[Rfam]
RNA sequence: GGCCUCUGGGUGCUUACCACAGGCUGCGUUCUUACACCUGACUGUAUAGAAAGAGGAAGCAGAGUAACCUACCCUAUAUACACCUCAGCCCAGGCCCUGUGCCUGGUCUGUGUUGUAAAUGGGGAGACAUGG
Number, nucleotide and partner (000 for none) at each position: 001g000002g060003c059004c000005u057006c056007u055008g000009g000010g000011u000012g000013c000014u000015u000016a000017c000018c000019a000020c044021a043022g042023g000024c000025u000026g037027c000028g035029u034030u000031c000032u000033u000034a029035c028036a000037c026038c000039u000040g000041a000042c022043u021044g020045u000046a000047u000048a000049g000050a000051a000052a000053g000054a000055g007056g006057a005058a000059g003060c002061a000062g000063a000064g000065u000066a000067a000068c000069c000070u000071a000072c124073c123074c122075u121076a120077u119078a000079u000080a000081c000082a000083c000084c000085u000086c110087a109088g108089c000090c106091c105092a104093g103094g102095c101096c000097c000098u000099g000100u000101g095102c094103c093104u092105g091106g090107u000108c088109u087110g086111u000112g000113u000114u000115g000116u000117a000118a000119a077120u076121g075122g074123g073124g072125a000126g000127a000128c000129a000130u000131g000132g000